Rfam assigns this 100-nucleotide RNA from Dichanthelium oligosanthes to the family "Small nucleolar RNA R44/J54/Z268 family". Pairs were carried over by alignment from the consensus structure, which was predicted with PFOLD.
RNA sequence: UUGGCAAAUGAUGAGAAGCAGGACAAGGACAUCUGCAGUGUUCCCUGAAUCAGGGACACAAUAGCAUGAUGACUCUGUCUAGGGGAAUCUCUGAUGCCAA
Numbered sequence: 001u002u003g004g005c006a007a008a009u010g011a012u013g014a015g016a017a018g019c020a021g022g023a024c025a026a027g028g029a030c031a032u033c034u035g036c037a038g039u040g041u042u043c044c045c046u047g048a049a050u051c052a053g054g055g056a057c058a059c060a061a062u063a064g065c066a067u068g069a070u071g072a073c074u075c076u077g078u079c080u081a082g083g084g085g086a087a088u089c090u091c092u093g094a095u096g097c098c099a100a
Base pairs, nucleotide, nucleotide: 002099003098004097005096006095
Its family is annotated with nucleolus and RNA processing in the Gene Ontology.